[Rfam]
RNA sequence: CCAGGUUGUGUAAACAUCCUACACUCUCGGCGUCUGCCCUCUGGUGGCCGGGGGUGGGAGUGUUUGCGCCCCCUGG
Numbered sequence: 001c002c003a004g005g006u007u008g009u010g011u012a013a014a015c016a017u018c019c020u021a022c023a024c025u026c027u028c029g030g031c032g033u034c035u036g037c038c039c040u041c042u043g044g045u046g047g048c049c050g051g052g053g054g055u056g057g058g059a060g061u062g063u064u065u066g067c068g069c070c071c072c073c074u075g076g
Base pairs, nucleotide, nucleotide: 002075003074004073005072008069009068010067011066012065013064014063015062016061017059018058019057020056023055024054025053026052027051028050029049030048031047

Record summary
Shown here is a 76-nucleotide RNA sequence from Cynoglossus semilaevis, a member of the family "mir-30 microRNA precursor family". A reference for the family is Lagos-Quintana et al. (2001), "Identification of novel genes coding for small expressed RNAs", Science. The organism belongs to Cynoglossus, within Eukaryota. Its family is annotated with gene silencing by miRNA and RISC complex in the Gene Ontology. From the family's description: This family consists of the mammalian microRNA (miRNA) precursor mir-30a. Animal miRNAs are transcribed as ~70nt precursors and subsequently processed by the Dicer enzyme to give a ~22nt product. In this case the mature sequence comes from both the 3' (miR-30) and 5' (mir-97-6) arms of the precursor. The base pairs follow the family's consensus structure, which was predicted with PFOLD.